[Rfam]
Nucleotides: 096
Base pairs, nucleotide, nucleotide: 001096002095003094004093005092006091007090
Number, partner (000 for none) and nucleotide at each position: 001096a002095u003094c004093a005092u006091c007090a008000a009000g010000u011000g012000a013000u014000g015000a016000a017000a018000g019000u020000u021000g022000g023000a024000a025000a026000a027000a028000u029000c030000u031000u032000a033000g034000g035000a036000c037000a038000c039000c040000u041000u042000c043000c044000u045000a046000c047000a048000u049000a050000g051000c052000u053000c054000u055000c056000u057000a058000a059000g060000c061000u062000a063000u064000g065000g066000a067000u068000g069000a070000g071000a072000a073000u074000a075000a076000a077000a078000u079000u080000u081000c082000c083000g084000u085000u086000c087000u088000g089000a090007u091006g092005a093004u094003g095002a096001u